Shown here is a 197-nucleotide RNA sequence from Oryza sativa, a member of the family "MIR812 microRNA precursor family". It scores 177 bits against the family's covariance model. The source organism's lineage runs through Eukaryota, Spermatophyta, Petrosaviidae, Oryzeae and Oryza sativa.
[Rfam]
RNA sequence: AAUAAGUGCAAUUUUGCACUAUUUAUAUUCAAUGUUUGACCGUUCGUCUUAUUUGAAAUUUUUUUAUGAUUAGUAUUUUUAUUGCUAUUAGAUGAUAAAACAUGAAUAGUACUGUAUGUGUGACUAAAUAUUUUUAAAUUUUUCAAAUAAGACGGACGGUCAAACGUUGGGCACGGAUAUCCACGGCUGCACUUAUU
Numbered sequence: 001a002a003u004a005a006g007u008g009c010a011a012u013u014u015u016g017c018a019c020u021a022u023u024u025a026u027a028u029u030c031a032a033u034g035u036u037u038g039a040c041c042g043u044u045c046g047u048c049u050u051a052u053u054u055g056a057a058a059u060u061u062u063u064u065u066a067u068g069a070u071u072a073g074u075a076u077u078u079u080u081a082u083u084g085c086u087a088u089u090a091g092a093u094g095a096u097a098a099a100a101c102a103u104g105a106a107u108a109g110u111a112c113u114g115u116a117u118g119u120g121u122g123a124c125u126a127a128a129u130a131u132u133u134u135u136a137a138a139u140u141u142u143u144c145a146a147a148u149a150a151g152a153c154g155g156a157c158g159g160u161c162a163a164a165c166g167u168u169g170g171g172c173a174c175g176g177a178u179a180u181c182c183a184c185g186g187c188u189g190c191a192c193u194u195a196u197u
Stems, first nucleotide, its partner, number of pairs: 028171006035164018
Notes: The family's consensus secondary structure was predicted with RNAalifold. Rfam 15.1 lists 57,451 matches to the family in 24 species. Its family is annotated with RISC complex and miRNA-mediated post-transcriptional gene silencing in the Gene Ontology.